[Rfam]
RNA sequence: AAACCAUGAUGAGGACAUCUUCGUUGUAAUUCCCGAUAGCGCUCCUAAGCUUCAUACAAUGUCUCUCCUUCCUGCUGAGAGAAACUAGUUAUAUCCAUUCUGAGUUU
Number, nucleotide and partner (000 for none) at each position: 001a107002a000003a105004c104005c102006a101007u000008g000009a000010u000011g000012a000013g000014g000015a000016c000017a000018u000019c000020u000021u000022c000023g000024u000025u000026g000027u000028a000029a000030u000031u000032c000033c000034c000035g000036a000037u000038a000039g000040c000041g000042c000043u000044c000045c000046u000047a000048a000049g000050c000051u000052u000053c000054a000055u000056a000057c074058a073059a000060u000061g000062u000063c000064u000065c000066u000067c000068c000069u000070u000071c000072c000073u058074g057075c000076u000077g000078a000079g000080a000081g000082a000083a000084a000085c000086u000087a000088g000089u000090u000091a000092u000093a000094u000095c000096c000097a000098u000099u000100c000101u006102g005103a000104g004105u003106u000107u001
The record is a 107-nucleotide RNA from Coffea arabica, which matches "Plant small nucleolar RNA R71" in Rfam. Gene Ontology terms of the family: nucleolus and RNA processing. The family's consensus secondary structure was predicted with PFOLD. The match comes from Rfam's covariance-model search (72 bits). Lineage of the source: Eukaryota > Mesangiospermae > Pentapetalae > asterids > Coffea. By type it is a C/D-box small nucleolar RNA.